[Rfam]
RNA: nrdJ RNA
RNA sequence: ACCUGUUGCGAGCGGUCGCGUAUGCGCUGCGCGCAACACCAGACACACACGUGCCCCGGGAAGAACGAGGCACUUCAGGGCGUU
Numbered sequence: 001a002c003c004u005g006u007u008g009c010g011a012g013c014g015g016u017c018g019c020g021u022a023u024g025c026g027c028u029g030c031g032c033g034c035a036a037c038a039c040c041a042g043a044c045a046c047a048c049a050c051g052u053g054c055c056c057c058g059g060g061a062a063g064a065a066c067g068a069g070g071c072a073c074u075u076c077a078g079g080g081c082g083u084u
Stems, first nucleotide, its partner, number of pairs: 004038007012030005051073005057067002